[Rfam]
RNA sequence: GGAUAGGAGGGUAAUCUGGCUGUGAGAUCUGAUAUGCCAUUGAUUGCAUGGGUUGAUCUGACUGAUCUGGCUAGCUUAGGCAGGUGUCCCCUUUCUUCCUUGACAUUCUGUGUGUGUUCAUCUUAAUGAUAUGCGCUUGGUUAAUGAGGACGGCCUCCCCAACAGACAUGGUAUUGUUCAUUGGUCGAAGGAGUGUGGUAGCUGUGCUCCCCUGCUGGAAGCUCUAAGUAAGCUCAAGGUCCAUUUGUAGAUAAAUGUAGGAUAAUCAAGCAUCCAAUGAAGACACAUCCAAAUGAGAAGCUGCAUGCACCAGUCUUUUAAAGCUU
Dot-bracket structure: (((...(((((.((...((....((.(((((.(.(.(((..(((((...............).)))))))...)....).))))).)).)).))..))))).....))).......((..((((((.(.......)))))((.....(((.....)))..))..))...)).............................(((....(..(((((.......(((..(((((...........)))))))).....)))))..)....)))...................((....(((((((.......))))..))).....))
Rfam assigns this 326-nucleotide sequence from Peucedramus taeniatus to the family "7SK RNA". A search with the family's covariance model found it, with a score of 158 bits. The base pairs follow the family's consensus structure, which is taken from published work.